RNA sequence: AGGCCGGGGGGUCAACGUCCGCCGACGCGAUGCGUCCGCGGGCGCGUUUUGC
Dot-bracket structure: ...............(((((((..((((...))))..)))))))........
Numbered sequence: 001a002g003g004c005c006g007g008g009g010g011g012u013c014a015a016c017g018u019c020c021g022c023c024g025a026c027g028c029g030a031u032g033c034g035u036c037c038g039c040g041g042g043c044g045c046g047u048u049u050u051g052c
Stems, first nucleotide, its partner, number of pairs: 016044007025035004
About this RNA
The record is a 52-nucleotide RNA sequence from Hansschlegelia plantiphila, which matches "ffh sRNA" in Rfam. NCBI's taxonomy places the organism under Bacteria, Pseudomonadati, Pseudomonadota, Alphaproteobacteria, Hansschlegelia. On this family, see Meyer et al., BMC Genomics 2009: "Identification of candidate structured RNAs in the marine organism 'Candidatus Pelagibacter ubique'". By type it is a small RNA. The match comes from Rfam's covariance-model search (51 bits).